A member of the RNA family "Small nucleolar RNA SNORA75" from Fukomys damarensis, 134 nucleotides long.
The family has 6 seed sequences and 414 matches in Rfam 15.1.
The source organism's lineage runs through Eukaryota, Teleostomi, Euteleostomi, Mammalia and Fukomys.
Gene Ontology terms of the family: nucleolus and RNA processing.
U23 belongs to the H/ACA class of snoRNAs. snoRNAs bind a number of proteins (including dyskerin, Gar1p and Nop10p in the case of the H/ACA class) to form snoRNP complexes.
By type it is an H/ACA-box small nucleolar RNA.
[Rfam]
RNA sequence: UCCUUCUCAUUGAGCUCCUUUCUGUCCCUGGUGGCAGUCACGGAUUCGCACGAGAAGAACAGCACUUCACAGAACCAGCGUUGCCUUAGCCUCUCUUUUGGCAGAGGUGUAUGUGGCUGUUCUGUGACACAUGC
Dot-bracket structure: ..((((((.....(((((...(((((......)))))....)))...))..)))))).........((((((.................(((((........)))))..............)))))).......